[Rfam]
The family of this 60-nucleotide RNA from Pelotomaculum thermopropionicum is "Na+ riboswitch aptamer (DUF1646)". The literature on the family includes a 2022 paper in Nat Chem Biol by White et al., "Na(+) riboswitches regulate genes for diverse physiological processes in bacteria".

RNA sequence: UGUUGGACGAACCUGUCCGGGUUCGUUUUCAAGGUUUGAAGGCUUCUGGGGUGGGAAGUC
Dot-bracket structure: ..(((((((((((......))))))))..)))........(((((((......)))))))